The family of this 569-nucleotide part of an RNA from Melghirimyces profundicolus is "Bacterial large subunit ribosomal RNA".
RNA sequence: UAGUAAGAGCGCACGGUGGAUGCCUUGGCGCCAGGAGCCGAUGAAGGACGGGGCGAACACCGAUAUGCCCCGGGGAGCCGUAAGCAGGCAUGGAUCCGGGGAUUUCCGAAUGGGGCAACCCACCGGCGGUCAACCGCCGGUACUCCUGCCUGAACCCAUAGGGCAGGUAGAGGCAGACCGGGGGAACUGAAACAUCUUAGUACCCCGAGGAGAAGAAAGCAAACGCGAUUCCCCGAGUAGCGGCGAGCGAAACGGGAACAGCCCAAACCGGCCGGCCUGUCCGGCCGGGGUUGUGGGGCGUCCCUUAUGGAGUGAGAAAAGCGGAGCGUAGGCGAAGUGGCCUGGAACGGCCCGCCGGAGACGGUAACAGCCCGGUAGCCGAAACGCCCCGCUCUCCGGGACGGACCCCGAGUACCACGGGACACGGGAAACCCCGUGGGAAUCCGGGAGGACCACCUCCCAAGGCUAAAUACUCCCUGGCGACCGAUAGUGAACCAGUACCGUGAGGGAAAGGUGAAAAGCACCCCGGGAGGGGAGUGAAAGAGAACCUGAAACCGUGUGCUUACAAG
Numbered sequence: 001u002a003g004u005a006a007g008a009g010c011g012c013a014c015g016g017u018g019g020a021u022g023c024c025u026u027g028g029c030g031c032c033a034g035g036a037g038c039c040g041a042u043g044a045a046g047g048a049c050g051g052g053g054c055g056a057a058c059a060c061c062g063a064u065a066u067g068c069c070c071c072g073g074g075g076a077g078c079c080g081u082a083a084g085c086a087g088g089c090a091u092g093g094a095u096c097c098g099g100g101g102a103u104u105u106c107c108g109a110a111u112g113g114g115g116c117a118a119c120c121c122a123c124c125g126g127c128g129g130u131c132a133a134c135c136g137c138c139g140g141u142a143c144u145c146c147u148g149c150c151u152g153a154a155c156c157c158a159u160a161g162g163g164c165a166g167g168u169a170g171a172g173g174c175a176g177a178c179c180g181g182g183g184g185a186a187c188u189g190a191a192a193c194a195u196c197u198u199a200g201u202a203c204c205c206c207g208a209g210g211a212g213a214a215g216a217a218a219g220c221a222a223a224c225g226c227g228a229u230u231c232c233c234c235g236a237g238u239a240g241c242g243g244c245g246a247g248c249g250a251a252a253c254g255g256g257a258a259c260a261g262c263c264c265a266a267a268c269c270g271g272c273c274g275g276c277c278u279g280u281c282c283g284g285c286c287g288g289g290g291u292u293g294u295g296g297g298g299c300g301u302c303c304c305u306u307a308u309g310g311a312g313u314g315a316g317a318a319a320a321g322c323g324g325a326g327c328g329u330a331g332g333c334g335a336a337g338u339g340g341c342c343u344g345g346a347a348c349g350g351c352c353c354g355c356c357g358g359a360g361a362c363g364g365u366a367a368c369a370g371c372c373c374g375g376u377a378g379c380c381g382a383a384a385c386g387c388c389c390c391g392c393u394c395u396c397c398g399g400g401a402c403g404g405a406c407c408c409c410g411a412g413u414a415c416c417a418c419g420g421g422a423c424a425c426g427g428g429a430a431a432c433c434c435c436g437u438g439g440g441a442a443u444c445c446g447g448g449a450g451g452a453c454c455a456c457c458u459c460c461c462a463a464g465g466c467u468a469a470a471u472a473c474u475c476c477c478u479g480g481c482g483a484c485c486g487a488u489a490g491u492g493a494a495c496c497a498g499u500a501c502c503g504u505g506a507g508g509g510a511a512a513g514g515u516g517a518a519a520a521g522c523a524c525c526c527c528g529g530g531a532g533g534g535g536a537g538u539g540a541a542a543g544a545g546a547a548c549c550u551g552a553a554a555c556c557g558u559g560u561g562c563u564u565a566c567a568a569g
Stems, first nucleotide, its partner, number of pairs: 007564010022549001023514002027485002029482007036474002038173002046107003049062003068101007077089003112121003122141007143170002145167007178209001179207005189196002219226002229470001230257004240248002260467004268288007295409003299403005318395001320393005326387004331380003337353001339352004356360001362374003415439007446461005501508002524535004
The organism belongs to Melghirimyces, within Bacteria.